[Rfam]
Nematode snoRNA ceN125: a 121-nucleotide RNA sequence from Pristionchus pacificus.
Rfam 15.1 lists 17 matches to the family in 14 species.
RNA sequence: AGAAACCAAGACAACAAAUUCCAGCUAGAGUUUCUAGUCUGAGCCGACGUCUUGGUAAAUAGGAAUCCUCUUGAUCCUUGGUCAGCUUUUAUAGUUGAUUGAGUUUGCACGGGGAGAACAA
Number, nucleotide and partner (000 for none) at each position: 001a000002g000003a000004a000005a056006c055007c054008a053009a052010g051011a050012c049013a000014a000015c000016a000017a000018a000019u000020u000021c000022c041023a040024g039025c037026u036027a035028g034029a033030g000031u000032u000033u029034c028035u027036a026037g025038u000039c024040u023041g022042a000043g048044c000045c000046g000047a000048c043049g012050u011051c010052u009053u008054g007055g006056u005057a000058a000059a000060u000061a000062g000063g000064a000065a000066u115067c114068c113069u112070c111071u000072u109073g108074a106075u000076c000077c103078u102079u101080g100081g000082u000083c097084a096085g095086c094087u093088u000089u000090u000091a000092u000093a087094g086095u085096u084097g083098a000099u000100u080101g079102a078103g077104u000105u000106u074107g000108c073109a072110c000111g070112g069113g068114g067115a066116g000117a000118a000119c000120a000121a000
For this family Rfam cites "Systematic identification of non-coding RNA 2,2,7-trimethylguanosine cap structures in Caenorhabditis elegans" (Jia et al., BMC Mol Biol, 2007). It scores 68 bits against the family's covariance model. Gene Ontology terms of the family: nucleolus and RNA processing. The source organism's lineage runs through Eukaryota, Opisthokonta, Bilateria, Nematoda and Pristionchus. By type it is an H/ACA-box small nucleolar RNA.